Description: U4 spliceosomal RNA: a 137-nucleotide RNA from Rhinolophus ferrumequinum. It is annotated as a spliceosomal small nuclear RNA. The source organism's lineage runs through Eukaryota, Craniata, Yinpterochiroptera, Rhinolophoidea and Rhinolophus. On this family, see Bai et al., Science 2018: "Structures of the fully assembled Saccharomyces cerevisiae spliceosome before activation". Rfam's curators write: U4 small nuclear RNA (U4 snRNA) is a component of the major U2-dependent spliceosome. The base pairs follow the family's consensus structure, which is taken from published work. Its Rfam clan is "U4 clan".
RNA sequence: GCUUUUGCGCAGUGGCAGUAUCGUAGCCAAUGAGGUUUAUCCGAGGCGCGAUUAUUGCUGAUUAAAAAUCCAUCAAAGAAGUCACAUGGAUUGAUGAAUAAGUAGAGGGAUGGAAUGAUAGAUAUAUGAUAAAGCAA
Dot-bracket structure: ...................(((((.(((.....((.....))..)))))))).............................((((.(..(((.(....).)))..).)..))).............((......)).